[Rfam]
RNA sequence: GGCGUCUUUCUUCGGGGCGGAGCUCGACCGCCAGCAUCGGAGAUAGUGGCGUUCAUCGACCAGAACAAGGACGACGUUCUGGACGGUCGCCGACUCGGAGUCGAGCCCAUCUGCCGCGUGCUGCAGGUGGCUUCG
Numbered sequence: 001g002g003c004g005u006c007u008u009u010c011u012u013c014g015g016g017g018c019g020g021a022g023c024u025c026g027a028c029c030g031c032c033a034g035c036a037u038c039g040g041a042g043a044u045a046g047u048g049g050c051g052u053u054c055a056u057c058g059a060c061c062a063g064a065a066c067a068a069g070g071a072c073g074a075c076g077u078u079c080u081g082g083a084c085g086g087u088c089g090c091c092g093a094c095u096c097g098g099a100g101u102c103g104a105g106c107c108c109a110u111c112u113g114c115c116g117c118g119u120g121c122u123g124c125a126g127g128u129g130g131c132u133u134c135g
Base pairs, nucleotide, nucleotide: 016032017031018030019029020028096135097134098133099132100131107130108129110127111126112125113124114123116121
RNA: ALIL pseudoknot
Organism: Microbacterium faecale